The record is an 87-nucleotide RNA from Physcomitrium patens, which matches "mir-160 microRNA precursor family" in Rfam. Pairs were carried over by alignment from the consensus structure, which was predicted with PFOLD.
[Rfam]
RNA sequence: GUCUGUCUGGCUCCCUGGAUGCCAGCUAUGCAGCCUGGCAAUCAUUUUGACAAGCCCCGCAGGUGGCAUACAGGGAGCCAGGCAGUC
Numbered sequence: 001g002u003c004u005g006u007c008u009g010g011c012u013c014c015c016u017g018g019a020u021g022c023c024a025g026c027u028a029u030g031c032a033g034c035c036u037g038g039c040a041a042u043c044a045u046u047u048u049g050a051c052a053a054g055c056c057c058c059g060c061a062g063g064u065g066g067c068a069u070a071c072a073g074g075g076a077g078c079c080a081g082g083c084a085g086u087c
Stems, first nucleotide, its partner, number of pairs: 001087001003085004008080007016072002019069006027061001029059001